[Rfam]
RNA sequence: GUCGAGGCUCCAUCUAUAAAUGGAUAAGAUUUUGGUCUUAAUGGAUACGAGUUUUUGAAAGUAAGGGUACAAUAUCAUUCCUCUUCUAUUAAGAGGAUUGAUAUUGUUCCUUU
Numbered sequence: 001g002u003c004g005a006g007g008c009u010c011c012a013u014c015u016a017u018a019a020a021u022g023g024a025u026a027a028g029a030u031u032u033u034g035g036u037c038u039u040a041a042u043g044g045a046u047a048c049g050a051g052u053u054u055u056u057g058a059a060a061g062u063a064a065g066g067g068u069a070c071a072a073u074a075u076c077a078u079u080c081c082u083c084u085u086c087u088a089u090u091a092a093g094a095g096g097a098u099u100g101a102u103a104u105u106g107u108u109c110c111u112u113u
Stems, first nucleotide, its partner, number of pairs: 009024005063112003067109001069107007077099001079097001081095004
Record summary: The family of this 113-nucleotide sequence from Bauhinia binata is "Plastid-psbA-1 3UTR RNA". NCBI's taxonomy places the organism under Eukaryota, Embryophyta, Spermatophyta, fabids, Bauhinia. Pairs were carried over by alignment from the consensus structure, which was predicted with LocARNA.